RNA sequence: CGAUGACCGUUCCUCUCGCUGCCACAAGAUAUGGGCAGCGGGAUUUUGUGUCGUCGCAGAUUAAACUUGACUUUUCUUCACUUGGGGUGCCUUGGAUGGAUUGGCUGUCUGUUAGGCCCUCCAAAUUUUGCGGGGUCAGACAUUC
Numbered sequence: 001c002g003a004u005g006a007c008c009g010u011u012c013c014u015c016u017c018g019c020u021g022c023c024a025c026a027a028g029a030u031a032u033g034g035g036c037a038g039c040g041g042g043a044u045u046u047u048g049u050g051u052c053g054u055c056g057c058a059g060a061u062u063a064a065a066c067u068u069g070a071c072u073u074u075u076c077u078u079c080a081c082u083u084g085g086g087g088u089g090c091c092u093u094g095g096a097u098g099g100a101u102u103g104g105c106u107g108u109c110u111g112u113u114a115g116g117c118c119c120u121c122c123a124a125a126u127u128u129u130g131c132g133g134g135g136u137c138a139g140a141c142a143u144u145c
Stems, first nucleotide, its partner, number of pairs: 001056007014043005020037004069137006082124006089117003094110005
Small nucleolar RNA SNORA79: a 145-nucleotide RNA from Alligator mississippiensis.
Gene Ontology terms of the family: nucleolus and RNA processing.
For this family Rfam cites "A computational screen for mammalian pseudouridylation guide H/ACA RNAs" (Schattner et al., RNA, 2006).
NCBI's taxonomy places the organism under Eukaryota, Opisthokonta, Euteleostomi, Archelosauria, Alligator.
ACA65 (SNORA79) is a member of the H/ACA class of snoRNAs that guide the sites of modification of uridines to pseudouridines. This snoRNA was identified by computational screening and its expression in mouse experimentally verified by Northern blot and primer extension analysis.
Rfam 15.1 lists 944 matches to the family in 375 species.
It is annotated as an H/ACA-box small nucleolar RNA.